Overview: The record is a 203-nucleotide sequence from Turnera subulata, which matches "MIR159 microRNA precursor family" in Rfam. Its family is annotated with miRNA-mediated post-transcriptional gene silencing and RISC complex in the Gene Ontology. A reference for the family is Jones-Rhoades and Bartel (2004), "Computational identification of plant microRNAs and their targets, including a stress-induced miRNA", Mol Cell. Lineage of the source: Eukaryota > Viridiplantae > Euphyllophyta > fabids > Turnera.
RNA sequence: UGGUACAACCAGGAGCUCCCUUUGGUCCAAAAUGAGGAAAGUUGAUAGGGGGUGUGCAUGGCUGCUAGUUCAUGGAUACCUCUGGGCUGCGCAGGAAAAAUCGAUGAAGAUCAUGUGCAGCCUAAGGGUUUGCAUGACCUGGGAGACCUGCUUACCUUCUUAUUCCCUUAAUUGGAUUGAAGGGAGCUCCUUCUUUACUUAAU
Dot-bracket structure: ............((((((((..(((((((......(.........................((.(((...((((....(((............................................)))....))))...))).))....................)......)))))))..))))))))..............